[Rfam]
RNA sequence: UAUUAGGUUGGCACAAAAGUAAUUGUGGUUUUUGCCAUUACUUUUAAUGACAAAAAUUGCAAUUACUUUUGUGCCAACCUAAUA
Numbered sequence: 001u002a003u004u005a006g007g008u009u010g011g012c013a014c015a016a017a018a019g020u021a022a023u024u025g026u027g028g029u030u031u032u033u034g035c036c037a038u039u040a041c042u043u044u045u046a047a048u049g050a051c052a053a054a055a056a057u058u059g060c061a062a063u064u065a066c067u068u069u070u071g072u073g074c075c076a077a078c079c080u081a082a083u084a
Base pairs, nucleotide, nucleotide: 001084002083003082004081005080006079007078008077009076010075011074012073013072014071015070016069017068018067019066020065021064022063023062024061025060026059027058028057029056030055031054032053033052034051036049037048038047039046040045
The family of this 84-nucleotide RNA from Cebus imitator is "mir-548 microRNA precursor family". Lineage of the source: Eukaryota > Metazoa > Chordata > Euteleostomi > Cebus. Its family is annotated with miRNA-mediated post-transcriptional gene silencing and RISC complex in the Gene Ontology. Pairs were carried over by alignment from the consensus structure, which was predicted with WAR.